The record is a 115-nucleotide RNA from Triticum urartu, which matches "MIR5070 microRNA precursor family" in Rfam. Its Rfam clan is "MIR2863 microRNA precursor clan". The family has 2 seed sequences and 266 matches in Rfam 15.1. The base pairs follow the family's consensus structure, which was predicted with RNAalifold.

[Rfam]
RNA sequence: UAGGGUACCCUUCGGCCCUACUUAGUUCAACCAAAUGAACUAAAAUUUCAAAAAUAUGUGAAUUCCGAAAAUUUAAUUUAUUUAGUUGAACUAAGGAGGGUCGGAGGGUACCCUC
Dot-bracket structure: .((((((((((((((((((.(((((((((((.(((((((.(((.............................))).))))))).))))))))))).)))))))))))))))))).